Source information
The record is a 504-nucleotide part of an RNA from Halomicrobium zhouii, which matches "Archaeal small subunit ribosomal RNA" in Rfam.
[Rfam]
RNA sequence: AUUCCGGUUGAUCCUGCCGGAGGCCAUUGCUAUCGGAGUCCGAUUUAGCCAUGCUAGUCGCACGGGCUCAGACCCGUGGCAGAUAGCUCAGUAACACGUGGCCAAACUACCCUACAGAUCGUGAUAACCUCGGGAAACUGAGGCUAAUAACGAAUACAGCUCACAGAUUUGAAUAUCGUGAGCUGGAAACGCUACGGCGCUGUAGGAUGUGGCUGCGGCCGAUUAGGCAGACGGUGGGGUAACGGCCCACCGUGCCGAUAAUCGGUACAGGUGGUGAGAGCCAGAGCCUGGAGACGGAAUCUGAGACAAGAUUCCGGGCCCUACGGGGCGCAGCAGGCGCGAAACCUUUACACUGCACGACAGUGCGAUAAGGGGACUCCGAGUGCGAGGGCAUAUAGUCCUCGCUUUUGUCGACCGUAAGGUGGUCGACGAAUAAGGACUGGGCAAGACCGGUGCCAGCCGCCGCGGUAAUACCGGCAGUCCGAGUGAUGGUCGACAUUAUUG
Numbered sequence: 001a002u003u004c005c006g007g008u009u010g011a012u013c014c015u016g017c018c019g020g021a022g023g024c025c026a027u028u029g030c031u032a033u034c035g036g037a038g039u040c041c042g043a044u045u046u047a048g049c050c051a052u053g054c055u056a057g058u059c060g061c062a063c064g065g066g067c068u069c070a071g072a073c074c075c076g077u078g079g080c081a082g083a084u085a086g087c088u089c090a091g092u093a094a095c096a097c098g099u100g101g102c103c104a105a106a107c108u109a110c111c112c113u114a115c116a117g118a119u120c121g122u123g124a125u126a127a128c129c130u131c132g133g134g135a136a137a138c139u140g141a142g143g144c145u146a147a148u149a150a151c152g153a154a155u156a157c158a159g160c161u162c163a164c165a166g167a168u169u170u171g172a173a174u175a176u177c178g179u180g181a182g183c184u185g186g187a188a189a190c191g192c193u194a195c196g197g198c199g200c201u202g203u204a205g206g207a208u209g210u211g212g213c214u215g216c217g218g219c220c221g222a223u224u225a226g227g228c229a230g231a232c233g234g235u236g237g238g239g240u241a242a243c244g245g246c247c248c249a250c251c252g253u254g255c256c257g258a259u260a261a262u263c264g265g266u267a268c269a270g271g272u273g274g275u276g277a278g279a280g281c282c283a284g285a286g287c288c289u290g291g292a293g294a295c296g297g298a299a300u301c302u303g304a305g306a307c308a309a310g311a312u313u314c315c316g317g318g319c320c321c322u323a324c325g326g327g328g329c330g331c332a333g334c335a336g337g338c339g340c341g342a343a344a345c346c347u348u349u350a351c352a353c354u355g356c357a358c359g360a361c362a363g364u365g366c367g368a369u370a371a372g373g374g375g376a377c378u379c380c381g382a383g384u385g386c387g388a389g390g391g392c393a394u395a396u397a398g399u400c401c402u403c404g405c406u407u408u409u410g411u412c413g414a415c416c417g418u419a420a421g422g423u424g425g426u427c428g429a430c431g432a433a434u435a436a437g438g439a440c441u442g443g444g445c446a447a448g449a450c451c452g453g454u455g456c457c458a459g460c461c462g463c464c465g466c467g468g469u470a471a472u473a474c475c476g477g478c479a480g481u482c483c484g485a486g487u488g489a490u491g492g493u494c495g496a497c498a499u500u501a502u503u504g
Stems, first nucleotide, its partner, number of pairs: 004020005022494010033382009042340001048338003052335003057080003062077005087293003097217007106210002111206007119153004128143006158184007167176002191198002219265003226256003231253008268290004272283004295316006318329004346372001348371003354367005385405008410430007437483006450477004459466002